[Rfam]
RNA sequence: AUAAUGUUCAGUUAUAUCAGGGUCCAGCAACAAAAACCCCGACUAAUCGGGGUUUUUUGUUAUUUGUAUUUUGUGUUGUGCAAAAUAUGAGUAAUGUUCGGGCUAUUUGAUAGGGCUAUUAGCCCUUUUUUU
Numbered sequence: 001a002u003a004a005u006g007u008u009c010a011g012u013u014a015u016a017u018c019a020g021g022g023u024c025c026a027g028c029a030a031c032a033a034a035a036a037c038c039c040c041g042a043c044u045a046a047u048c049g050g051g052g053u054u055u056u057u058u059g060u061u062a063u064u065u066g067u068a069u070u071u072u073g074u075g076u077u078g079u080g081c082a083a084a085a086u087a088u089g090a091g092u093a094a095u096g097u098u099c100g101g102g103c104u105a106u107u108u109g110a111u112a113g114g115g116c117u118a119u120u121a122g123c124c125c126u127u128u129u130u131u132u
Stems, first nucleotide, its partner, number of pairs: 033056009113125004
Dot-bracket structure: ................................(((((((((......)))))))))........................................................((((.....)))).......
RNA: Gammaprotebacteria rimP leader